[Rfam]
RNA: Enterobacterial sRNA STnc430
Organism: Salmonella enterica
RNA sequence: AAAAAACAAAAUCAUCCGUAUAAUCUGAAAAUAACACAGAGUAACUUACGGGUUAUUGGUUAUUUUAGGAUUAAGCUCAAUAUAAAAUUAUGGGGAAAAACAUAGACAAGCGGAAUUAUCUUAUAAAAAAGCCGAUGCGAAUAUCGGCUUUUUUAUUAUCU
Numbered sequence: 001a002a003a004a005a006a007c008a009a010a011a012u013c014a015u016c017c018g019u020a021u022a023a024u025c026u027g028a029a030a031a032u033a034a035c036a037c038a039g040a041g042u043a044a045c046u047u048a049c050g051g052g053u054u055a056u057u058g059g060u061u062a063u064u065u066u067a068g069g070a071u072u073a074a075g076c077u078c079a080a081u082a083u084a085a086a087a088u089u090a091u092g093g094g095g096a097a098a099a100a101c102a103u104a105g106a107c108a109a110g111c112g113g114a115a116u117u118a119u120c121u122u123a124u125a126a127a128a129a130a131g132c133c134g135a136u137g138c139g140a141a142u143a144u145c146g147g148c149u150u151u152u153u154u155a156u157u158a159u160c161u
Base pairs, nucleotide, nucleotide: 015106016105018103019102024070025069026068028066029065030064031063032062033061034060040057041056042055043054044053045052046051112121113120129150130149131148132147133146134145135144136143137142
Dot-bracket structure: ..............((.((....(((.(((((((.....(((((((....)))))))..))))))).)))...............................)).)).....((......)).......(((((((((....)))))))))...........